[Rfam]
RNA sequence: AGCUUUGCUCAGUGGCGGUAUCGUAGCCAAUGAGGGUUCUCUGAGGCGCAAUUAUUGCUAAUUGAAAACUUUACCCUGCCAUGACGACUUGAAAUAUAGUCGGCAUUGGCAAUUUUUAACAGUCUCUAUGGAGA
Numbered sequence: 001a002g003c004u005u006u007g008c009u010c011a012g013u014g015g016c017g018g019u020a021u022c023g024u025a026g027c028c029a030a031u032g033a034g035g036g037u038u039c040u041c042u043g044a045g046g047c048g049c050a051a052u053u054a055u056u057g058c059u060a061a062u063u064g065a066a067a068a069c070u071u072u073a074c075c076c077u078g079c080c081a082u083g084a085c086g087a088c089u090u091g092a093a094a095u096a097u098a099g100u101c102g103g104c105a106u107u108g109g110c111a112a113u114u115u116u117u118a119a120c121a122g123u124c125u126c127u128a129u130g131g132a133g134a
Stems, first nucleotide, its partner, number of pairs: 020052002023049002026047003034042003078110003081106003085102005123134004
Overview: The family of this 134-nucleotide RNA sequence from Cebus imitator is "U4 spliceosomal RNA". Rfam classes the family as a spliceosomal small nuclear RNA. Clan: U4 clan. About the family: U4 small nuclear RNA (U4 snRNA) is a component of the major U2-dependent spliceosome. The organism belongs to Cebus, within Eukaryota. Rfam 15.1 lists 32,178 matches to the family in 2,547 species. It scores 101 bits against the family's covariance model.